[Rfam]
RNA sequence: CUGUAAGGGGAAUGAUGUAUUACUAUAGGGCUCUCAAGAUGCUUGCCUUUCUAGAUUCUGCAUCUGAGAUGGACUUACAG
Numbered sequence: 001c002u003g004u005a006a007g008g009g010g011a012a013u014g015a016u017g018u019a020u021u022a023c024u025a026u027a028g029g030g031c032u033c034u035c036a037a038g039a040u041g042c043u044u045g046c047c048u049u050u051c052u053a054g055a056u057u058c059u060g061c062a063u064c065u066g067a068g069a070u071g072g073a074c075u076u077a078c079a080g
Stems, first nucleotide, its partner, number of pairs: 001080006